[Rfam]
RNA: tRNA
RNA sequence: CGGGGCGUGGCUCAGCCUGGUAGAGCGCAGCGUUCGGGACGCUGAGGCCGGAGGUUCGAAUCCUCUCGCCCCGA
Numbered sequence: 001c002g003g004g005g006c007g008u009g010g011c012u013c014a015g016c017c018u019g020g021u022a023g024a025g026c027g028c029a030g031c032g033u034u035c036g037g038g039a040c041g042c043u044g045a046g047g048c049c050g051g052a053g054g055u056u057c058g059a060a061u062c063c064u065c066u067c068g069c070c071c072c073g074a
Stems, first nucleotide, its partner, number of pairs: 001073007010026004028044005050066005